Shown here is a 67-nucleotide RNA from Pipistrellus kuhlii, a member of the family "mir-9256 microRNA precursor family".
RNA sequence: AUAUACACUGAGUGGCCAGAUUAUUAUGGUCUCUGAAUGCAUAAUAAUCUGGCCACUCGGUAUAUAU
Numbered sequence: 001a002u003a004u005a006c007a008c009u010g011a012g013u014g015g016c017c018a019g020a021u022u023a024u025u026a027u028g029g030u031c032u033c034u035g036a037a038u039g040c041a042u043a044a045u046a047a048u049c050u051g052g053c054c055a056c057u058c059g060g061u062a063u064a065u066a067u
Stems, first nucleotide, its partner, number of pairs: 004064002007061011019049010

Rfam 15.1 lists 31,772 matches to the family in 5 species.